[Rfam]
RNA sequence: AGGCCCGAAGAGAGGCAGGGUCUGAUCUGCAACCUCCGUGGCAGAUGUUGAUCAGCUGUUGCCUCUCUCUUUCUCUCCG
Numbered sequence: 001a002g003g004c005c006c007g008a009a010g011a012g013a014g015g016c017a018g019g020g021u022c023u024g025a026u027c028u029g030c031a032a033c034c035u036c037c038g039u040g041g042c043a044g045a046u047g048u049u050g051a052u053c054a055g056c057u058g059u060u061g062c063c064u065c066u067c068u069c070u071u072u073c074u075c076u077c078c079g
Base pairs, nucleotide, nucleotide: 008071009070010069011066012065013064014063015062016061017060018059020057022055023054024053025052026051027050030047031046033044
mir-574 microRNA precursor family: a 79-nucleotide RNA from Cnephaeus nilssonii.
The base pairs follow the family's consensus structure, which was predicted with RNAalifold.
Rfam 15.1 lists 4,084 matches to the family in 7 species.
A reference for the family is Lui et al. (2007), "Patterns of known and novel small RNAs in human cervical cancer", Cancer Res.